ROOL RNA: a 570-nucleotide RNA. The family's consensus secondary structure is taken from published work.
[Rfam]
RNA sequence: AAUCAACGCGAAGGAUUGUUUCAACCAUGUGUAUUCACAAUUCCAUGUGGUCAUGGACGUGUUCAAGGAGUUCCACUAUGGAGGAUACCCCAUAGGUAGGCUUUGCCUGAUGCAGGUAACUGGCAUCUAAAGAAGGGCAGAAGAGAUGGAAAAUCUCAACCGAGCAGGCACGGUGCUGUGAUGAAACGCAAGAAAAUGGUAUCGCUAACUGGUCGCUAUCGCAAUAGAUAUAAGGUAUACUUAUUGAACCAAGUAGAGGAUAGUUUGGCAGCUAUGUCAAUCGCUUGGAGUGCCAUAAGAUAGUUGUCCAAUUGAUGCUGGUAAUCAGAUAUAAGACCAGACGCGAGUACGAGUAGCCCAAAGUUGGAAUAUAUUAGAAGAUAUUAUAAGAUUGAUAUGCUGAAUGGUGGGUGAAAGUUGUUGGUAGCCAAUCCAGCCAUAGAUUGACGUAAGUUGGGAUGGAAAGAUAUGGGGUCGCUCCCUGUGUCUCAGCUCCAUUUCCUAUGUGACCGAAUUACCACUACGUUUUAUGAAGGUACGAUGAAGAUCGGAGACAAUCUUUCGCGUUGG
Numbered sequence: 001a002a003u004c005a006a007c008g009c010g011a012a013g014g015a016u017u018g019u020u021u022c023a024a025c026c027a028u029g030u031g032u033a034u035u036c037a038c039a040a041u042u043c044c045a046u047g048u049g050g051u052c053a054u055g056g057a058c059g060u061g062u063u064c065a066a067g068g069a070g071u072u073c074c075a076c077u078a079u080g081g082a083g084g085a086u087a088c089c090c091c092a093u094a095g096g097u098a099g100g101c102u103u104u105g106c107c108u109g110a111u112g113c114a115g116g117u118a119a120c121u122g123g124c125a126u127c128u129a130a131a132g133a134a135g136g137g138c139a140g141a142a143g144a145g146a147u148g149g150a151a152a153a154u155c156u157c158a159a160c161c162g163a164g165c166a167g168g169c170a171c172g173g174u175g176c177u178g179u180g181a182u183g184a185a186a187c188g189c190a191a192g193a194a195a196a197u198g199g200u201a202u203c204g205c206u207a208a209c210u211g212g213u214c215g216c217u218a219u220c221g222c223a224a225u226a227g228a229u230a231u232a233a234g235g236u237a238u239a240c241u242u243a244u245u246g247a248a249c250c251a252a253g254u255a256g257a258g259g260a261u262a263g264u265u266u267g268g269c270a271g272c273u274a275u276g277u278c279a280a281u282c283g284c285u286u287g288g289a290g291u292g293c294c295a296u297a298a299g300a301u302a303g304u305u306g307u308c309c310a311a312u313u314g315a316u317g318c319u320g321g322u323a324a325u326c327a328g329a330u331a332u333a334a335g336a337c338c339a340g341a342c343g344c345g346a347g348u349a350c351g352a353g354u355a356g357c358c359c360a361a362a363g364u365u366g367g368a369a370u371a372u373a374u375u376a377g378a379a380g381a382u383a384u385u386a387u388a389a390g391a392u393u394g395a396u397a398u399g400c401u402g403a404a405u406g407g408u409g410g411g412u413g414a415a416a417g418u419u420g421u422u423g424g425u426a427g428c429c430a431a432u433c434c435a436g437c438c439a440u441a442g443a444u445u446g447a448c449g450u451a452a453g454u455u456g457g458g459a460u461g462g463a464a465a466g467a468u469a470u471g472g473g474g475u476c477g478c479u480c481c482c483u484g485u486g487u488c489u490c491a492g493c494u495c496c497a498u499u500u501c502c503u504a505u506g507u508g509a510c511c512g513a514a515u516u517a518c519c520a521c522u523a524c525g526u527u528u529u530a531u532g533a534a535g536g537u538a539c540g541a542u543g544a545a546g547a548u549c550g551g552a553g554a555c556a557a558u559c560u561u562u563c564g565c566g567u568u569g570g
Stems, first nucleotide, its partner, number of pairs: 012562003017557001020554002025056005035050005058172006069102004076095006083088001103140006143157005179551001184529003192522001198518001199511001202346004209340006215304006231243004249288006259278003262273003266295004307368005318328003350417001356412005399493004422436001424434001439505003442455001446454001457502003462496001465494001466489001468486007539550004

It is one of the family's seed sequences. Rfam's curators write: Firmicutes, Fusobacteria (1 example), Tenericutes (1 example).